[Rfam]
RNA sequence: UAUAAAACUGUGAUUGAGAGAAGUACAUUUUCUUUUUAGAUUUCAGAGAGUGAACGGUAGGUGGAAGUUCAUAUUUAAGGGAAUUUGGAAUGGGCUCAUGAGUGGGAACUGAAAUUAUUGUUAGAGUAGGUAACCCGGGUUCUCCCGUUAUAGAGAUCGGAUAUCAGGAAAGUUAUUUUCUCGUAUCUUAAAGAGAUGUCUAUUUUUAUACCUAAAAAUAGAUAAAUGAGGUGGCACCGCGAUAAUAGAUAAUUAUUCGCCCUCUAU
Numbered sequence: 001u002a003u004a005a006a007a008c009u010g011u012g013a014u015u016g017a018g019a020g021a022a023g024u025a026c027a028u029u030u031u032c033u034u035u036u037u038a039g040a041u042u043u044c045a046g047a048g049a050g051u052g053a054a055c056g057g058u059a060g061g062u063g064g065a066a067g068u069u070c071a072u073a074u075u076u077a078a079g080g081g082a083a084u085u086u087g088g089a090a091u092g093g094g095c096u097c098a099u100g101a102g103u104g105g106g107a108a109c110u111g112a113a114a115u116u117a118u119u120g121u122u123a124g125a126g127u128a129g130g131u132a133a134c135c136c137g138g139g140u141u142c143u144c145c146c147g148u149u150a151u152a153g154a155g156a157u158c159g160g161a162u163a164u165c166a167g168g169a170a171a172g173u174u175a176u177u178u179u180c181u182c183g184u185a186u187c188u189u190a191a192a193g194a195g196a197u198g199u200c201u202a203u204u205u206u207u208a209u210a211c212c213u214a215a216a217a218a219u220a221g222a223u224a225a226a227u228g229a230g231g232u233g234g235c236a237c238c239g240c241g242a243u244a245a246u247a248g249a250u251a252a253u254u255a256u257u258c259g260c261c262c263u264c265u266a267u
Stems, first nucleotide, its partner, number of pairs: 007103002015098004026087002030083002039075003050072006104135002108131003136147003198223010228264004239260004
Description
This 267-nucleotide sequence from Anaeromicrobium sediminis belongs to the Rfam family "T-box leader". Rfam classes the family as a cis-regulatory leader.